[Rfam]
RNA sequence: UCUUCAUUUCACAUACUCUCUCGCCACUCUAAUAAUCGAGAGAGUGUGCGAAAUGAAGAGA
Numbered sequence: 001u002c003u004u005c006a007u008u009u010c011a012c013a014u015a016c017u018c019u020c021u022c023g024c025c026a027c028u029c030u031a032a033u034a035a036u037c038g039a040g041a042g043a044g045u046g047u048g049c050g051a052a053a054u055g056a057a058g059a060g061a
Stems, first nucleotide, its partner, number of pairs: 001059007010050001012048006019041004
RNA: mir-8364 microRNA precursor family
Organism: Pristionchus pacificus